[Rfam]
RNA sequence: GCGGCAAUUAUAGCGCCUGAGCUGCCAUGAUUCAGGAAUGGCAGUUGACGAGGACGGGGUUUAUCGAAUUUUCGGCGGAUGCCCCGCGGUCAGCCGUGACCGUAGACAUACUCAAAGCUCUGGAGCGAUCCGGAGGACAAAUGGUAUGGGACGGCAUAA
Numbered sequence: 001g002c003g004g005c006a007a008u009u010a011u012a013g014c015g016c017c018u019g020a021g022c023u024g025c026c027a028u029g030a031u032u033c034a035g036g037a038a039u040g041g042c043a044g045u046u047g048a049c050g051a052g053g054a055c056g057g058g059g060u061u062u063a064u065c066g067a068a069u070u071u072u073c074g075g076c077g078g079a080u081g082c083c084c085c086g087c088g089g090u091c092a093g094c095c096g097u098g099a100c101c102g103u104a105g106a107c108a109u110a111c112u113c114a115a116a117g118c119u120c121u122g123g124a125g126c127g128a129u130c131c132g133g134a135g136g137a138c139a140a141a142u143g144g145u146a147u148g149g150g151a152c153g154g155c156a157u158a159a
Base pairs, nucleotide, nucleotide: 020046021045022044023043024042025041026040027039028038055086056085057084058083059082064075065074066073067072087102088101089100090099091098092097107148108147109146110145111144118135119134120133121132122131123130124129
RNA: glmS glucosamine-6-phosphate activated ribozyme aptamer
Organism: Acidaminobacter hydrogenoformans